[Rfam]
RNA: mir-287 microRNA precursor family
RNA sequence: GAGUGUGGGGCCUGAAAUUUUGCACACAUUUACAAUAAUUGUAAAUGUGUUGAAAAUCGUUUGCACAACUGUG
Numbered sequence: 001g002a003g004u005g006u007g008g009g010g011c012c013u014g015a016a017a018u019u020u021u022g023c024a025c026a027c028a029u030u031u032a033c034a035a036u037a038a039u040u041g042u043a044a045a046u047g048u049g050u051u052g053a054a055a056a057u058c059g060u061u062u063g064c065a066c067a068a069c070u071g072u073g
Stems, first nucleotide, its partner, number of pairs: 010064002015062002017057005024050012